[Rfam]
RNA sequence: ACGACCUUACUUGAACAGGAUCUGUUCUAUAGGCUCGUACCUCUGUAUCCUUGAGUUCUAAGGAGACAGAAUUUCCAUGUCUGGUUGAUGAACAAAUACUGUGUGAUCAGAGCGUGAUUAUUGGCUAGGCCCAGCCCAUCUGAUGGGAUGGCUCUUCCCUGGAGGAUCGUUCUCAGUCACAGCUUUGCUUGCCUGGGACUGGGAUGGUUACACAGUUGUCUGACAGACU
Numbered sequence: 001a002c003g004a005c006c007u008u009a010c011u012u013g014a015a016c017a018g019g020a021u022c023u024g025u026u027c028u029a030u031a032g033g034c035u036c037g038u039a040c041c042u043c044u045g046u047a048u049c050c051u052u053g054a055g056u057u058c059u060a061a062g063g064a065g066a067c068a069g070a071a072u073u074u075c076c077a078u079g080u081c082u083g084g085u086u087g088a089u090g091a092a093c094a095a096a097u098a099c100u101g102u103g104u105g106a107u108c109a110g111a112g113c114g115u116g117a118u119u120a121u122u123g124g125c126u127a128g129g130c131c132c133a134g135c136c137c138a139u140c141u142g143a144u145g146g147g148a149u150g151g152c153u154c155u156u157c158c159c160u161g162g163a164g165g166a167u168c169g170u171u172c173u174c175a176g177u178c179a180c181a182g183c184u185u186u187g188c189u190u191g192c193c194u195g196g197g198a199c200u201g202g203g204a205u206g207g208u209u210a211c212a213c214a215g216u217u218g219u220c221u222g223a224c225a226g227a228c229u
Stems, first nucleotide, its partner, number of pairs: 001038002003035001005033003013027006043069004048064006079228005098216012111171004123159002127155003131151003135147004173202006180195003
RNA: Plant small nucleolar RNA U3
Organism: Hibiscus trionum